[Rfam]
RNA sequence: ACAACCUUAGGACCGUCGGUCUACCGAUCAAUAUCACCCGCUCGGUGGAAGAUCUUGCCUUUGUCGU
Numbered sequence: 001a002c003a004a005c006c007u008u009a010g011g012a013c014c015g016u017c018g019g020u021c022u023a024c025c026g027a028u029c030a031a032u033a034u035c036a037c038c039c040g041c042u043c044g045g046u047g048g049a050a051g052a053u054c055u056u057g058c059c060u061u062u063g064u065c066g067u
Stems, first nucleotide, its partner, number of pairs: 004064002010058001012056001015053003020049008029040001

This 67-nucleotide RNA from Bombyx mori belongs to the Rfam family "mir-2774 microRNA precursor family". The match comes from Rfam's covariance-model search (76 bits). Gene Ontology terms of the family: RISC complex and miRNA-mediated post-transcriptional gene silencing. For this family Rfam cites "MicroRNAs of Bombyx mori identified by Solexa sequencing" (Liu et al., BMC Genomics, 2010).